[Rfam]
Mason-Pfizer monkey virus packaging signal: a 276-nucleotide RNA from Cercocebus atys. Rfam describes the family as follows. This family represents a group of sequences that are related to the Mason-Pfizer monkey virus (MPMV) packaging signal. The literature on the family includes a 2004 paper in Virus Res by Mustafa et al., "Mutational analysis of the predicted secondary RNA structure of the Mason-Pfizer monkey virus packaging signal". NCBI's taxonomy places the organism under Eukaryota, Bilateria, Boreoeutheria, Cercopithecoidea, Cercocebus. It is annotated as a cis-regulatory element.

RNA sequence: UGGCGCCUCACGUGGAACCUGGAAACGAGGAUUCCGUGAGGAAGAGGGACGCGCGAAAGAAUGGUCGACCCUGAAGGUGAAACUAACACUCCUCCGAUCACGCGGGAACUGCCGCGUCCGAAACAAAGUAAGUGACGUCCAAAUGUGGACAAGAAUUAAGUCAACAUCAAAUCUAGUUAGUUACAAUUAAAAAGAGGCUUUAAAGAUACGAGGAGUAAAGGUUAAAGGUAAUGAUUUGUUAAAAUUUUUUGAUUUUUGUAAAAGACACUUGCCCUU
Numbered sequence: 001u002g003g004c005g006c007c008u009c010a011c012g013u014g015g016a017a018c019c020u021g022g023a024a025a026c027g028a029g030g031a032u033u034c035c036g037u038g039a040g041g042a043a044g045a046g047g048g049a050c051g052c053g054c055g056a057a058a059g060a061a062u063g064g065u066c067g068a069c070c071c072u073g074a075a076g077g078u079g080a081a082a083c084u085a086a087c088a089c090u091c092c093u094c095c096g097a098u099c100a101c102g103c104g105g106g107a108a109c110u111g112c113c114g115c116g117u118c119c120g121a122a123a124c125a126a127a128g129u130a131a132g133u134g135a136c137g138u139c140c141a142a143a144u145g146u147g148g149a150c151a152a153g154a155a156u157u158a159a160g161u162c163a164a165c166a167u168c169a170a171a172u173c174u175a176g177u178u179a180g181u182u183a184c185a186a187u188u189a190a191a192a193a194g195a196g197g198c199u200u201u202a203a204a205g206a207u208a209c210g211a212g213g214a215g216u217a218a219a220g221g222u223u224a225a226a227g228g229u230a231a232u233g234a235u236u237u238g239u240u241a242a243a244a245u246u247u248u249u250u251g252a253u254u255u256u257u258g259u260a261a262a263a264g265a266c267a268c269u270u271g272c273c274c275u276u
Base pairs, nucleotide, nucleotide: 006030007029012026013025035051037045088129089128090127093126098122099120101116102115103114104113105112137150138149139148140147141146157202158201159200160198161197162196209251210250211249212248213247214246215245216244219237220236221235222234223233224232261276262275264273266271